[Rfam]
RNA sequence: GCUGCAAGUUUAAGGACAUAGCAGAAGCACUCACAGGACAACCCUAUCAGAUUCAAAUGAAUCUGUGAAUUCUGCU
Numbered sequence: 001g002c003u004g005c006a007a008g009u010u011u012a013a014g015g016a017c018a019u020a021g022c023a024g025a026a027g028c029a030c031u032c033a034c035a036g037g038a039c040a041a042c043c044c045u046a047u048c049a050g051a052u053u054c055a056a057a058u059g060a061a062u063c064u065g066u067g068a069a070u071u072c073u074g075c076u
Base pairs, nucleotide, nucleotide: 014043015042020076021075022074023073024072025071026070027039048065049064050063051062052061053060054059

This 76-nucleotide sequence from Crocodylus porosus belongs to the Rfam family "Mammalian CPEB3 ribozyme". From the family's description: The mammalian CPEB3 ribozyme is a self cleaving RNA located in the second intron of the CPEB3 gene which belongs to a family of genes regulating messenger RNA polyadenylation.